[Rfam]
RNA sequence: UGUCCAUCCCGAGCGACUGAGAGACCUGGCUCGCCGAAGUCGCAGCAACCACCCUCCGCAGGGCAGGUGCUACCGCCAGGACCGAUGGAGGCUGUUUCCGAUGAAGA
Dot-bracket structure: (.(.((((....(((((...(((..[[[[)))......)))))((((.((.((.......))...))))))...(]]]](((.(.......).)))..))))).).)
Numbered sequence: 001u002g003u004c005c006a007u008c009c010c011g012a013g014c015g016a017c018u019g020a021g022a023g024a025c026c027u028g029g030c031u032c033g034c035c036g037a038a039g040u041c042g043c044a045g046c047a048a049c050c051a052c053c054c055u056c057c058g059c060a061g062g063g064c065a066g067g068u069g070c071u072a073c074c075g076c077c078a079g080g081a082c083c084g085a086u087g088g089a090g091g092c093u094g095u096u097u098c099c100g101a102u103g104a105a106g107a
Stems, first nucleotide, its partner, number of pairs: 001107001003105001005103004013043005021032003026079004044071004049067002052062002075099001080096003084092001
A member of the RNA family "SAM riboswitch aptamer (S box leader)" from Amycolatopsis saalfeldensis, 107 nucleotides long. The source organism's lineage runs through Bacteria, Bacillati, Actinomycetota, Pseudonocardiaceae and Amycolatopsis. The family's consensus secondary structure is taken from published work.